[Rfam]
RNA sequence: UACUACACAAAUCCUAUCUCCACUUCCACUUGGUGACCGCUGGGAGCUCUUUUUUAACGAAAAGUUGCAGAGGGAGAAGG
Numbered sequence: 001u002a003c004u005a006c007a008c009a010a011a012u013c014c015u016a017u018c019u020c021c022a023c024u025u026c027c028a029c030u031u032g033g034u035g036a037c038c039g040c041u042g043g044g045a046g047c048u049c050u051u052u053u054u055u056a057a058c059g060a061a062a063a064g065u066u067g068c069a070g071a072g073g074g075a076g077a078a079g080g
Base pairs, nucleotide, nucleotide: 013080014079015078017076019074020073021072022034023033024032047067050064051063052062053061054060